The record is a 64-nucleotide RNA from Zhengella mangrovi, which matches "Xanthine riboswitch aptamer (NMT1 RNA)" in Rfam. Pairs were carried over by alignment from the consensus structure, which is taken from published work. A reference for the family is Yu and Breaker (2020), "A bacterial riboswitch class senses xanthine and uric acid to regulate genes associated with purine oxidation", RNA. Gene Ontology term of the family: purine nucleobase binding.
RNA sequence: ACAGGGAGUAUAAGCAGUCAACGCUUCCGGCCGCAGGGCCGGGACGCCGGUCAUUGCUCCUUUU
Numbered sequence: 001a002c003a004g005g006g007a008g009u010a011u012a013a014g015c016a017g018u019c020a021a022c023g024c025u026u027c028c029g030g031c032c033g034c035a036g037g038g039c040c041g042g043g044a045c046g047c048c049g050g051u052c053a054u055u056g057c058u059c060c061u062u063u064u
Base pairs, nucleotide, nucleotide: 005060006059007058008057009056010055015049019050022046023045025043026042027041